[Rfam]
Description:
A member of the RNA family "FMN riboswitch aptamer (RFN element)" from Spirochaeta africana, 140 nucleotides long. It scores 96 bits against the family's covariance model. Its family is annotated with FMN binding in the Gene Ontology. The RFN element is a highly conserved domain that is found frequently in the 5'-untranslated regions of prokaryotic mRNAs that encode for flavin mononucleotide (FMN) biosynthesis and transport proteins.

RNA sequence: GAUGAUUUUCAGGGCAUGGUGAGUCUUGUGUUGCAAGACAAUUCCAGACCGGCGGUUACAGCCCGCGACUCCCUACUCCAGGGGACUGAACUGGUGAAACUCCAGUGCCGACGGUACAGUCCGGACGGAAGAAAAUCGCA
Dot-bracket structure: ..((((((((......(((........................))).[[((((((.....[[))))...((............))....(((((.......)))))]])).(((....]]))).......))))))))..